The family of this 123-nucleotide sequence is "Hepatitis C virus J7880 RNA". On this family, see Mauger et al., Proc Natl Acad Sci U S A 2015: "Functionally conserved architecture of hepatitis C virus RNA genomes". It is annotated as a cis-regulatory element.
RNA sequence: AUGAAGGCGAAGGCAUCCACAGUGAAGGCCAACAUGCUAUCCAUCGAGGAAGCUUGUAGCCUGACGCCCCCCCACUCUGCCAAAUCUAAGUUUGGCUAUGGGGCAAAGGAUGUCCGGAGCCAU
Numbered sequence: 001a002u003g004a005a006g007g008c009g010a011a012g013g014c015a016u017c018c019a020c021a022g023u024g025a026a027g028g029c030c031a032a033c034a035u036g037c038u039a040u041c042c043a044u045c046g047a048g049g050a051a052g053c054u055u056g057u058a059g060c061c062u063g064a065c066g067c068c069c070c071c072c073c074a075c076u077c078u079g080c081c082a083a084a085u086c087u088a089a090g091u092u093u094g095g096c097u098a099u100g101g102g103g104c105a106a107a108g109g110a111u112g113u114c115c116g117g118a119g120c121c122a123u
Stems, first nucleotide, its partner, number of pairs: 006120001012114007022065002025062001028057002035050001037048002068103004074097001076095002079091002